Rfam assigns this 257-nucleotide RNA to the family "Hairpin ribozyme 2 from viruses-like metatranscriptomes". A reference for the family is Weinberg et al. (2021), "Identification of over 200-fold more hairpin ribozymes than previously known in diverse circular RNAs", Nucleic Acids Res. Pairs were carried over by alignment from the consensus structure, which is taken from published work. It is one of the family's seed sequences. From the family's description: Hairpin-meta ribozymes were recognised in metatranscriptomic sequences of viruses-like organisms, it was proved by co-transcriptional assays that hairpin-meta1 and hairpin-meta2 non-coding RNA (ncRNAs) are catalytically active and it is suggested that they likely replicate as circular single-stranded RNAs.
RNA sequence: UAAAUGGGUUAUUGUUGCCCAGGGCUGUCCGUGGUACCGGAGAUAGGCAUCCGAGUAGUUCCAAGACUGCAACAAUCGGCCGAAUUGCGUAAGACCGACGGCAGUGUACAUCUUUGAGAGUACUGUCGCAAGGGAACGUGCCAAUCCGGAGAAUGGGGUGAAACUCCUCUGAAAUCCGGUGUUGCUUUAUACCACGGGAAGCCCAAACAGAAUGAAACACGCAGAUAGUUGUCGCAUUUGCGGAACAUUAAUUCUGA
Numbered sequence: 001u002a003a004a005u006g007g008g009u010u011a012u013u014g015u016u017g018c019c020c021a022g023g024g025c026u027g028u029c030c031g032u033g034g035u036a037c038c039g040g041a042g043a044u045a046g047g048c049a050u051c052c053g054a055g056u057a058g059u060u061c062c063a064a065g066a067c068u069g070c071a072a073c074a075a076u077c078g079g080c081c082g083a084a085u086u087g088c089g090u091a092a093g094a095c096c097g098a099c100g101g102c103a104g105u106g107u108a109c110a111u112c113u114u115u116g117a118g119a120g121u122a123c124u125g126u127c128g129c130a131a132g133g134g135a136a137c138g139u140g141c142c143a144a145u146c147c148g149g150a151g152a153a154u155g156g157g158g159u160g161a162a163a164c165u166c167c168u169c170u171g172a173a174a175u176c177c178g179g180u181g182u183u184g185c186u187u188u189a190u191a192c193c194a195c196g197g198g199a200a201g202c203c204c205a206a207a208c209a210g211a212a213u214g215a216a217a218c219a220c221g222c223a224g225a226u227a228g229u230u231g232u233c234g235c236a237u238u239u240g241c242g243g244a245a246c247a248u249u250a251a252u253u254c255u256g257a
Stems, first nucleotide, its partner, number of pairs: 005021005022204004030196007038053004058137005076098004099128006209255004220242007